[Rfam]
RNA: tRNA
Organism: Nitrospirillum viridazoti
RNA sequence: CGGGGCGUAGCGCAGUCUGGUAGCGCGACGGUUUUGGGAACCGUAGGCCCCCGGUUCGAAUCCGGGCGCCCCGA
Numbered sequence: 001c002g003g004g005g006c007g008u009a010g011c012g013c014a015g016u017c018u019g020g021u022a023g024c025g026c027g028a029c030g031g032u033u034u035u036g037g038g039a040a041c042c043g044u045a046g047g048c049c050c051c052c053g054g055u056u057c058g059a060a061u062c063c064g065g066g067c068g069c070c071c072c073g074a
Base pairs, nucleotide, nucleotide: 001073002072003071004070005069006068007067010026011025012024013023028044029043030042031041032040050066051065052064053063054062